sraL Hfq binding RNA: a 148-nucleotide RNA sequence from Klebsiella pneumoniae. Lineage of the source: Bacteria > Enterobacterales > Enterobacteriaceae > Klebsiella pneumoniae > Klebsiella pneumoniae subsp. pneumoniae. The family's consensus secondary structure was predicted with RNAalifold. The sequence is in the family's curated seed alignment. Rfam links the family to the GO term negative regulation of gene expression. On this family, see Gottesman et al., Cold Spring Harb Symp Quant Biol 2001: "Small RNA regulators of translation: mechanisms of action and approaches for identifying new small RNAs". The SraL RNA ('sra' for small RNA), discovered in E. coli, and later in Salmonella Tiphimurium. It is expressed only in stationary phase. It may possibly play a role in Salmonella virulence. The major stationary phase regulator RpoS is transcriptionally regulating SraL and directly binds to the sraL gene promoter. SraL down-regulates the expression of of the ribosome-associated chaperone Trigger Factor (TF), which is involved in the folding of the newly synthesised cystolic proteins.

RNA sequence: GUCGACGCAAACCGGAACCUCCAUCAACAGAUUGCGCAAUACUGAGGGACGUCGACGUCGGGGGAAACCCUCUCGCGAACCAGCGAGAUAAUGCGAAAGACCAAGACCGGAAAACAACUAAAGCGCCCAGUUGUGGCGCUUUAGUUUU
Numbered sequence: 001g002u003c004g005a006c007g008c009a010a011a012c013c014g015g016a017a018c019c020u021c022c023a024u025c026a027a028c029a030g031a032u033u034g035c036g037c038a039a040u041a042c043u044g045a046g047g048g049a050c051g052u053c054g055a056c057g058u059c060g061g062g063g064g065a066a067a068c069c070c071u072c073u074c075g076c077g078a079a080c081c082a083g084c085g086a087g088a089u090a091a092u093g094c095g096a097a098a099g100a101c102c103a104a105g106a107c108c109g110g111a112a113a114a115c116a117a118c119u120a121a122a123g124c125g126c127c128c129a130g131u132u133g134u135g136g137c138g139c140u141u142u143a144g145u146u147u148u
Base pairs, nucleotide, nucleotide: 002055003054004053005052006051007050014022015021035046037044038043057101058100059099061070062069063068071088072087073086074085075084076083116147117146118144119143120142121141122140123139124138125137126136127135